[Rfam]
This 109-nucleotide RNA sequence from Salipaludibacillus agaradhaerens belongs to the Rfam family "SAM riboswitch aptamer (S box leader)". The organism belongs to Salipaludibacillus, within Bacteria.

RNA sequence: UUCUUAUCACGAGAGGUGGAGGGAAAGGCCCUAAGAAACCUCAGCAACCAGCCGGCUUUAUGCGGUCAGGUGCUAAUUCCUGCAAGAAGACAACUUGCAAAGAUAAGGA
Numbered sequence: 001u002u003c004u005u006a007u008c009a010c011g012a013g014a015g016g017u018g019g020a021g022g023g024a025a026a027g028g029c030c031c032u033a034a035g036a037a038a039c040c041u042c043a044g045c046a047a048c049c050a051g052c053c054g055g056c057u058u059u060a061u062g063c064g065g066u067c068a069g070g071u072g073c074u075a076a077u078u079c080c081u082g083c084a085a086g087a088a089g090a091c092a093a094c095u096u097g098c099a100a101a102g103a104u105a106a107g108g109a
Stems, first nucleotide, its partner, number of pairs: 001109008013042005021031003026081003043074004048070002051066004078101001082098005
Description:
From the family's description: The SAM riboswitch is found upstream of a number of genes which code for proteins involved in methionine or cysteine biosynthesis in Gram-positive bacteria. The match comes from Rfam's covariance-model search (85 bits).